[Rfam]
RNA sequence: CCCUGACAGCCGCACAGCGUGGCUGACACUAGCCACGACAGGAGUACAAAAUG
Numbered sequence: 001c002c003c004u005g006a007c008a009g010c011c012g013c014a015c016a017g018c019g020u021g022g023c024u025g026a027c028a029c030u031a032g033c034c035a036c037g038a039c040a041g042g043a044g045u046a047c048a049a050a051a052u053g
Base pairs, nucleotide, nucleotide: 002042003041004040005039007025008024009023010022011021
A member of the RNA family "Mu-gpT-DE RNA", 53 nucleotides long. Rfam's curators put it in the seed alignment. Rfam classes the family as a small RNA.